[Rfam]
RNA: c-di-GMP-I riboswitch aptamer
Organism: Anaerobacillus isosaccharinicus
Nucleotides: 084
Base pairs, nucleotide, nucleotide: 012037013036017032018031019030020029021028022027040078041077042076043075045074046073047072048069049068050067055063056062057061
Number, partner (000 for none) and nucleotide at each position: 001000a002000a003000u004000u005000g006000a007000u008000a009000a010000a011000g012037g013036c014000a015000a016000a017032c018031u019030u020029a021028u022027u023000g024000a025000a026000a027022g028021a029020u030019a031018a032017g033000g034000a035000c036013g037012c038000a039000a040078a041077a042076c043075c044000a045074u046073g047072g048069g049068u050067c051000u052000a053000a054000g055063g056062u057061u058000c059000a060000a061057g062056a063055c064000u065000a066000u067050g068049a069048u070000c071000g072047c073046c074045a075043g076042g077041u078040u079000g080000c081000c082000a083000a084000a